[Rfam]
RNA sequence: GCGGGCCGACGCGGACGCCCGUUCAGGCGACCCGUUGCCCAAGUUCCGC
Numbered sequence: 001g002c003g004g005g006c007c008g009a010c011g012c013g014g015a016c017g018c019c020c021g022u023u024c025a026g027g028c029g030a031c032c033c034g035u036u037g038c039c040c041a042a043g044u045u046c047c048g049c
Stems, first nucleotide, its partner, number of pairs: 001022006011049005026039005

Annotation
A member of the RNA family "chrB-b RNA", 49 nucleotides long.